Streptomyces RNA 4115: a 112-nucleotide RNA sequence from Streptomyces albus. The base pairs follow the family's consensus structure. Lineage of the source: Bacteria > Bacillati > Streptomyces > Streptomyces albus > Streptomyces albus subsp. albus. From the family's description: Identified by deep sequencing of transcriptome at the end of exponential growth phase. Sequencing size consistent with notrthern blot size. Streptomyces specific.
[Rfam]
RNA sequence: GCGUGGGUCGGCCCGCUGCACUGGGUCCAGCGGGCUGGGGGAACACCCGCCGUCCCCAUCCCCGCGGGCGGCGGACCGGUCCGGGAGGCGCAGCGGUGCCUCCCGGACUGCG
Numbered sequence: 001g002c003g004u005g006g007g008u009c010g011g012c013c014c015g016c017u018g019c020a021c022u023g024g025g026u027c028c029a030g031c032g033g034g035c036u037g038g039g040g041g042a043a044c045a046c047c048c049g050c051c052g053u054c055c056c057c058a059u060c061c062c063c064g065c066g067g068g069c070g071g072c073g074g075a076c077c078g079g080u081c082c083g084g085g086a087g088g089c090g091c092a093g094c095g096g097u098g099c100c101u102c103c104c105g106g107a108c109u110g111c112g
Stems, first nucleotide, its partner, number of pairs: 001111002006077003009037010038044001046074001048073008057064001078109013
It is annotated as a small RNA. A reference for the family is Vockenhuber et al. (2011), "Deep sequencing-based identification of small non-coding RNAs in Streptomyces coelicolor", RNA Biol.